The record is a 146-nucleotide RNA sequence from Mesorhizobium japonicum, which matches "Alphaproteobacterial sRNA ar7" in Rfam. The base pairs follow the family's consensus structure. Rfam classes the family as a small RNA. On this family, see del Val et al., RNA Biol 2012: "A survey of sRNA families in alpha-proteobacteria". Taxonomically the source falls in Mesorhizobium japonicum (Bacteria, Alphaproteobacteria, Hyphomicrobiales, Mesorhizobium).
[Rfam]
RNA sequence: CAUCGGCAGUUUUCGCCGAAGUCCGGAGCAAGGCCCGUCCCCCGCCUAUCCCGGACAAUUGCGGCAGCCUAUCCCCCCUCUCCGGGCUGCCGCAUCGUUUCGAGUAUGAGGCCGCCGUGGUUCCCCCUCCACCACGGCGGUCUUUU
Number, nucleotide and partner (000 for none) at each position: 001c000002a000003u000004c000005g000006g000007c000008a000009g000010u000011u000012u000013u000014c000015g000016c000017c000018g000019a000020a000021g000022u055023c054024c053025g052026g051027a000028g049029c000030a000031a000032g046033g045034c044035c000036c000037g000038u000039c000040c000041c000042c000043c000044g034045c033046c032047u000048a000049u028050c000051c026052c025053g024054g023055a022056c000057a000058a000059u000060u094061g093062c092063g091064g090065c089066a088067g087068c086069c085070u000071a000072u000073c000074c000075c000076c000077c000078c000079u000080c000081u000082c000083c000084g000085g069086g068087c067088u066089g065090c064091c063092g062093c061094a060095u000096c000097g000098u000099u000100u000101c000102g000103a000104g000105u000106a000107u000108g000109a000110g142111g141112c140113c139114g138115c137116c136117g135118u134119g133120g132121u131122u000123c000124c000125c000126c000127c000128u000129c000130c000131a121132c120133c119134a118135c117136g116137g115138c114139g113140g112141u111142c110143u000144u000145u000146u000